[Rfam]
RNA sequence: AUUCGAGGCCAAGAGUCAUUCAGCUAGCGUUUGUUAUUUGAGUGCUGUGGUAUCUCGUAAAUAAAUUUACUUAUUAUGCAAAUAGGGCUUGCAUUUGCUCCCCUAUUUCACCUCAGAGUUAUACAAU
Numbered sequence: 001a002u003u004c005g006a007g008g009c010c011a012a013g014a015g016u017c018a019u020u021c022a023g024c025u026a027g028c029g030u031u032u033g034u035u036a037u038u039u040g041a042g043u044g045c046u047g048u049g050g051u052a053u054c055u056c057g058u059a060a061a062u063a064a065a066u067u068u069a070c071u072u073a074u075u076a077u078g079c080a081a082a083u084a085g086g087g088c089u090u091g092c093a094u095u096u097g098c099u100c101c102c103c104u105a106u107u108u109c110a111c112c113u114c115a116g117a118g119u120u121a122u123a124c125a126a127u
Base pairs, nucleotide, nucleotide: 004057005056006055007054008051009050010049011048014046015045017044018043019042020041021040022039025036027034028033068121069120071116072115077110078109080108081107082106083105085103086102087101091098092097
Rfam assigns this 127-nucleotide RNA sequence from Caenorhabditis auriculariae to the family "C. elegans snoRNA ceN100". On this family, see Jia et al., BMC Mol Biol 2007: "Systematic identification of non-coding RNA 2,2,7-trimethylguanosine cap structures in Caenorhabditis elegans". The family's RNA type in Rfam is H/ACA-box small nucleolar RNA. Rfam links the family to the GO terms nucleolus and RNA processing.